Nucleotides: 085
Base pairs, nucleotide, nucleotide: 001085002084003083004082005081006080007079009077010076011075012074013073017069018068019067020066021065023063024062025061026060028058029057
Number, partner (000 for none) and nucleotide at each position: 001085g002084c003083c004082g005081g006080u007079c008000c009077u010076c011075g012074g013073u014000a015000g016000u017069g018068g019067u020066u021065c022000c023063c024062g025061g026060g027000u028058u029057c030000a031000g032000c033000c034000g035000a036000c037000c038000g039000a040000c041000a042000c043000a044000g045000g046000g047000a048000g049000u050000g051000u052000c053000g054000u055000g056000u057029g058028g059000c060026c061025c062024c063023g064000a065021g066020g067019a068018c069017u070000u071000c072000g073013a074012u075011c076010g077009a078000a079007g080006a081005c082004c083003g084002g085001c
Shown here is an 85-nucleotide RNA sequence from Actinokineospora alba, a member of the family "Actino-pnp RNA".
NCBI's taxonomy places the organism under Bacteria, Actinomycetota, Actinomycetes, Pseudonocardiaceae, Actinokineospora.
Rfam classes the family as a cis-regulatory element.
The base pairs follow the family's consensus structure, which is taken from published work.